Notes
The family of this 141-nucleotide sequence from Paraconexibacter algicola is "c-di-AMP riboswitch aptamer (ydaO/yuaA leader)". Rfam links the family to the GO terms cyclic-di-AMP binding and regulation of gene expression.
[Rfam]
RNA sequence: UGCCGCGAAUUGCCGAACCCUGGACGGAACACCAGGGACGGGGGACCCACGUCGUUGGGGCGAAUCCGAUCGUGAUCGGACGCGCUGGUUCUUUCUGCGCGAGCCCGUCAGCUAACCCCGGAGGCCGUCGAAAGAAAGCAG
Number, nucleotide and partner (000 for none) at each position: 001u000002g000003c000004c000005g000006c000007g000008a000009a000010u000011u000012g125013c124014c123015g000016a000017a000018c037019c036020c035021u034022g033023g032024a000025c000026g000027g000028a000029a000030c000031a000032c023033c022034a021035g020036g019037g018038a000039c120040g119041g118042g117043g116044g000045a000046c000047c000048c057049a056050c000051g000052u000053c000054g000055u000056u049057g048058g106059g105060g104061c000062g000063a000064a000065u000066c079067c078068g077069a076070u000071c000072g000073u000074g000075a000076u069077c068078g067079g066080a000081c000082g100083c099084g098085c097086u000087g000088g000089u000090u000091c000092u000093u000094u000095c000096u000097g085098c084099g083100c082101g000102a000103g000104c060105c059106c058107g000108u000109c000110a000111g000112c000113u000114a000115a000116c043117c042118c041119c040120g039121g000122a000123g014124g013125c012126c000127g000128u000129c000130g000131a000132a000133a000134g000135a000136a000137a000138g000139c000140a000141g000